Rfam assigns this 80-nucleotide sequence from Drosophila ananassae to the family "mir-306 microRNA precursor family". On this family, see Aravin et al., Dev Cell 2003: "The small RNA profile during Drosophila melanogaster development". The source organism's lineage runs through Eukaryota, Protostomia, Hexapoda, Aparaglossata and ananassae species complex. The family has 16 seed sequences and 49 matches in Rfam 15.1. The family's consensus secondary structure was predicted with RNAalifold. The sequence is in the family's curated seed alignment.

RNA sequence: CCACUUGGUAGCUCAGGUACUUAGUGACUCUCAAUGCAUUUGACAUUUUGGGAGCCACUUUGUGCCUGGGCCAUCAGUGC
Numbered sequence: 001c002c003a004c005u006u007g008g009u010a011g012c013u014c015a016g017g018u019a020c021u022u023a024g025u026g027a028c029u030c031u032c033a034a035u036g037c038a039u040u041u042g043a044c045a046u047u048u049u050g051g052g053a054g055c056c057a058c059u060u061u062g063u064g065c066c067u068g069g070g071c072c073a074u075c076a077g078u079g080c
Base pairs, nucleotide, nucleotide: 002079003078004077005076007074009073011071012070014068015067016066017065018064019063020062023059024058025057026056028054029053030052031051032050033049034046035045036044